Shown here is a 95-nucleotide sequence from Phascolarctobacterium sp. CAG:266, a member of the family "Glycine riboswitch aptamer".
Lineage of the source: Bacteria > Bacillota > Negativicutes > Acidaminococcaceae > Phascolarctobacterium.
This family represents the bacterial glycine riboswitch.

RNA sequence: GGACACAUCUCUGGAGAAUCCCACUAAAAGGGUGCCGAAGGUGCACGGGGAAGCAACGCCCCUUAUCUCUCAGGCCAAAGGACAGAGCUUUAAGC
Dot-bracket structure: ......(.(((((......(((.......))).(((((..(.(...((((........))))....).))).))).......))))).)......
A search with the family's covariance model found it, with a score of 52 bits.